RNA sequence: UGACGGAAGGGCACCACCAGGCGUGGAGCUUGCGGCUUAAUUUGACUCAACGCGGGGAAACUUACCAGGUCAAAACAUGCGAAGGAUUGACAGGCUGAUAGUCCUUUCUCGAUUGCAUGGCUGGUGGUGCAUGGCCGUUCUUAGUUGGUGGACUGAUUUGUCUGGUUAAUUCCGGUAACGAACGAGACCUUGGCCUGCUAACUAGAUAGUGUACUUCUGUGCACUAAGCUUCUUAGAGGGACAAUGGUGGUUACAUCACUGAAGCUCAAGGUAAUAACAGGUCUGUUAUGCCCUUAGAUGUCCUGGGCCGCACGCGUGCUACACUGACACACUCAGCAAGCCACUUGGUCGGCAGAUCAAGUAAAUCAUCAAAGUGUGUCUUGUUAGGGACAGUUCCUUGUAAUUGUGGAGCUCUAACAAGGAAUGCCUAGUAAGUGCAAGUCAACAUCUUGUGCUGAUUACGUCCCUGCCCUUUGUACACACCGCCCGUCGCUCCUACCGAUUUCGAGUGAUUAGGUGAGCCUUCCUCGAACCGCAAGGAAAGAGAAACAAAUCUAACUACUUAGAGGAAGGAGAAGUCGUAACAAGG
Numbered sequence: 001u002g003a004c005g006g007a008a009g010g011g012c013a014c015c016a017c018c019a020g021g022c023g024u025g026g027a028g029c030u031u032g033c034g035g036c037u038u039a040a041u042u043u044g045a046c047u048c049a050a051c052g053c054g055g056g057g058a059a060a061c062u063u064a065c066c067a068g069g070u071c072a073a074a075a076c077a078u079g080c081g082a083a084g085g086a087u088u089g090a091c092a093g094g095c096u097g098a099u100a101g102u103c104c105u106u107u108c109u110c111g112a113u114u115g116c117a118u119g120g121c122u123g124g125u126g127g128u129g130c131a132u133g134g135c136c137g138u139u140c141u142u143a144g145u146u147g148g149u150g151g152a153c154u155g156a157u158u159u160g161u162c163u164g165g166u167u168a169a170u171u172c173c174g175g176u177a178a179c180g181a182a183c184g185a186g187a188c189c190u191u192g193g194c195c196u197g198c199u200a201a202c203u204a205g206a207u208a209g210u211g212u213a214c215u216u217c218u219g220u221g222c223a224c225u226a227a228g229c230u231u232c233u234u235a236g237a238g239g240g241a242c243a244a245u246g247g248u249g250g251u252u253a254c255a256u257c258a259c260u261g262a263a264g265c266u267c268a269a270g271g272u273a274a275u276a277a278c279a280g281g282u283c284u285g286u287u288a289u290g291c292c293c294u295u296a297g298a299u300g301u302c303c304u305g306g307g308c309c310g311c312a313c314g315c316g317u318g319c320u321a322c323a324c325u326g327a328c329a330c331a332c333u334c335a336g337c338a339a340g341c342c343a344c345u346u347g348g349u350c351g352g353c354a355g356a357u358c359a360a361g362u363a364a365a366u367c368a369u370c371a372a373a374g375u376g377u378g379u380c381u382u383g384u385u386a387g388g389g390a391c392a393g394u395u396c397c398u399u400g401u402a403a404u405u406g407u408g409g410a411g412c413u414c415u416a417a418c419a420a421g422g423a424a425u426g427c428c429u430a431g432u433a434a435g436u437g438c439a440a441g442u443c444a445a446c447a448u449c450u451u452g453u454g455c456u457g458a459u460u461a462c463g464u465c466c467c468u469g470c471c472c473u474u475u476g477u478a479c480a481c482a483c484c485g486c487c488c489g490u491c492g493c494u495c496c497u498a499c500c501g502a503u504u505u506c507g508a509g510u511g512a513u514u515a516g517g518u519g520a521g522c523c524u525u526c527c528u529c530g531a532a533c534c535g536c537a538a539g540g541a542a543a544g545a546g547a548a549a550c551a552a553a554u555c556u557a558a559c560u561a562c563u564u565a566g567a568g569g570a571a572g573g574a575g576a577a578g579u580c581g582u583a584a585c586a587a588g589g
Stems, first nucleotide, its partner, number of pairs: 001480002003477003007474007016464002020428005025322001027320003031316004035311002041056004065306005071300001076119005089108002092105003123294002126292004132288001133286001134282003137278003144183003148179002150159003162175004189270004194239003198236004204230002207227001242261002245258005326380007340367001343362002347358004387418001392413006434456008483588001485585001488581002491578001493575005499569002503565001507564005513558006521550001524549002527546003533540002